Annotation: Shown here is a 93-nucleotide RNA, a member of the family "Rhodo-rpoB RNA". The family's RNA type in Rfam is cis-regulatory element.
RNA sequence: GGUUCGGGAGCCUCCCACUGGGACGGGGGGCAUGAAUGGAACCAACGCCCAAUCGCCACUCGGCGCGCGCACGGCCCCCCAACUGGGCGCGCU
Numbered sequence: 001g002g003u004u005c006g007g008g009a010g011c012c013u014c015c016c017a018c019u020g021g022g023a024c025g026g027g028g029g030g031c032a033u034g035a036a037u038g039g040a041a042c043c044a045a046c047g048c049c050c051a052a053u054c055g056c057c058a059c060u061c062g063g064c065g066c067g068c069g070c071a072c073g074g075c076c077c078c079c080c081a082a083c084u085g086g087g088c089g090c091g092c093u
Base pairs, nucleotide, nucleotide: 001043002042003041004040005039010031011030012029013028014027015026016025065092066091067090068089070087072085073084074083